[Rfam]
RNA: c-di-AMP riboswitch aptamer (ydaO/yuaA leader)
RNA sequence: GCGGAUGCCGCGCUGAGUCCGAAGCCACCCGUGGCAGAGGAGCCGGGGAACCAACACUUCUGGGGUGAAUCCCGUGCGAGGCGCACUGCCGGCGACCUAGCAGUCGGAGGCGGGGCGAGGAGCACGGGUAGGGCAAGUCGUGCCCGAAUCCGUCAGCUCACCCGGUAGGCGUACGACACUGGAGGG
Numbered sequence: 001g002c003g004g005a006u007g008c009c010g011c012g013c014u015g016a017g018u019c020c021g022a023a024g025c026c027a028c029c030c031g032u033g034g035c036a037g038a039g040g041a042g043c044c045g046g047g048g049a050a051c052c053a054a055c056a057c058u059u060c061u062g063g064g065g066u067g068a069a070u071c072c073c074g075u076g077c078g079a080g081g082c083g084c085a086c087u088g089c090c091g092g093c094g095a096c097c098u099a100g101c102a103g104u105c106g107g108a109g110g111c112g113g114g115g116c117g118a119g120g121a122g123c124a125c126g127g128g129u130a131g132g133g134c135a136a137g138u139c140g141u142g143c144c145c146g147a148a149u150c151c152g153u154c155a156g157c158u159c160a161c162c163c164g165g166u167a168g169g170c171g172u173a174c175g176a177c178a179c180u181g182g183a184g185g186g
Base pairs, nucleotide, nucleotide: 011171012170013169014168018041019040020039042166043165044164045163046162047161052062053061063151064150065149071128072127073126074125075124076123077122131145132144133143134142